[Rfam]
Nucleotides: 110
Base pairs, nucleotide, nucleotide: 015035016034017033019032020031021030022029073101074100075099076098077097078096079095080094081093082092083091084090
Number, partner (000 for none) and nucleotide at each position: 001000u002000a003000c004000a005000u006000c007000c008000a009000c010000g011000c012000c013000g014000u015035g016034a017033a018000u019032g020031u021030g022029a023000c024000a025000u026000a027000c028000a029022u030021c031020a032019c033017u034016u035015c036000a037000a038000a039000c040000c041000a042000g043000g044000g045000c046000a047000c048000a049000g050000a051000c052000u053000c054000a055000g056000u057000a058000u059000u060000a061000u062000c063000a064000g065000a066000c067000a068000g069000a070000g071000u072000u073101g074100a075099a076098c077097c078096c079095u080094c081093g082092c083091u084090a085000c086000c087000g088000g089000a090084u091083g092082g093081c094080g095079a096078g097077g098076g099075u100074u101073u102000u103000c104000u105000u106000u107000u108000g109000g110000c